[Rfam]
RNA sequence: GGGGAUGACCGGAAUUGACAGCUUGAGCAAGCUGGGUGUAAGCAUGUCGGGAGUUGGCUGUUUUCCCGUAAAUCAGAAUUGACCGACUAUUAUCUGGCGAGUCUAACUACGCCAUGGCUGCCUAGUCUAGGUACUAAGCAUUUUGCCAUUGUCCUGCAGCUCCUCGGUUCGGUGGGGGUUGGUCACAGGGCAUCGUAAUGCCGAUCUAGUGUACUCCAAGGUGUGGGGAGUGCAUGAAACUAAAGCACCUAAGGUGAUUUCAUAGGCCAGGCUUGGGCCUGAACUCACACGAAAACCAAUCCAAGACUAAACAUGUAGAAAGCGCUCAAGUUUCCUUGUCUGGACCAGGGUUCGACUCCCUGCAUCUCCACCA
Numbered sequence: 001g002g003g004g005a006u007g008a009c010c011g012g013a014a015u016u017g018a019c020a021g022c023u024u025g026a027g028c029a030a031g032c033u034g035g036g037u038g039u040a041a042g043c044a045u046g047u048c049g050g051g052a053g054u055u056g057g058c059u060g061u062u063u064u065c066c067c068g069u070a071a072a073u074c075a076g077a078a079u080u081g082a083c084c085g086a087c088u089a090u091u092a093u094c095u096g097g098c099g100a101g102u103c104u105a106a107c108u109a110c111g112c113c114a115u116g117g118c119u120g121c122c123u124a125g126u127c128u129a130g131g132u133a134c135u136a137a138g139c140a141u142u143u144u145g146c147c148a149u150u151g152u153c154c155u156g157c158a159g160c161u162c163c164u165c166g167g168u169u170c171g172g173u174g175g176g177g178g179u180u181g182g183u184c185a186c187a188g189g190g191c192a193u194c195g196u197a198a199u200g201c202c203g204a205u206c207u208a209g210u211g212u213a214c215u216c217c218a219a220g221g222u223g224u225g226g227g228g229a230g231u232g233c234a235u236g237a238a239a240c241u242a243a244a245g246c247a248c249c250u251a252a253g254g255u256g257a258u259u260u261c262a263u264a265g266g267c268c269a270g271g272c273u274u275g276g277g278c279c280u281g282a283a284c285u286c287a288c289a290c291g292a293a294a295a296c297c298a299a300u301c302c303a304a305g306a307c308u309a310a311a312c313a314u315g316u317a318g319a320a321a322g323c324g325c326u327c328a329a330g331u332u333u334c335c336u337u338g339u340c341u342g343g344a345c346c347a348g349g350g351u352u353c354g355a356c357u358c359c360c361u362g363c364a365u366c367u368c369c370a371c372c373a
Base pairs, nucleotide, nucleotide: 001369002368003367004366005365006364007363019342020341021340023338025336027334030331033328034327035326036325037324038323039322043315044314045313046312047311048068049067050066051065052064055081056080057079059077119140120139121138123136124135125134126133150192151191152190153189154188155187157181158180159179160178161177162176163175164174167206169204170203171202172201173200209235210234211233212232213231214230215229216228217227220249221248222247223246224245254288255287256286257285259283260282261281266278267277268276270307272305273304275301346362347361348360349359350358
Rfam assigns this 373-nucleotide sequence from Rufibacter sp. DG15C to the family "transfer-messenger RNA". Rfam's curators write: Bacterial tmRNA, also known as 10Sa RNA or SsrA, is named for its dual tRNA and mRNA-like properties. On this family, see Zwieb et al., Nucleic Acids Res 2003: "tmRDB (tmRNA database)".